[Rfam]
RNA: MIR5298 microRNA precursor family
RNA sequence: UUUUUUUUUUUUCAUUUUCUUCUGAAAUUUUUCAGGGAUUCUUGUUGUUGAAGGUUGAUGAAGAUGAUAUGAAGAUGAAAAAGAGGAGAAG
Numbered sequence: 001u002u003u004u005u006u007u008u009u010u011u012u013c014a015u016u017u018u019c020u021u022c023u024g025a026a027a028u029u030u031u032u033c034a035g036g037g038a039u040u041c042u043u044g045u046u047g048u049u050g051a052a053g054g055u056u057g058a059u060g061a062a063g064a065u066g067a068u069a070u071g072a073a074g075a076u077g078a079a080a081a082a083g084a085g086g087a088g089a090a091g
Base pairs, nucleotide, nucleotide: 005085006084007083008082009081010080011079012078013077014076015075016074017073018072019071037056038055039054040053042051043050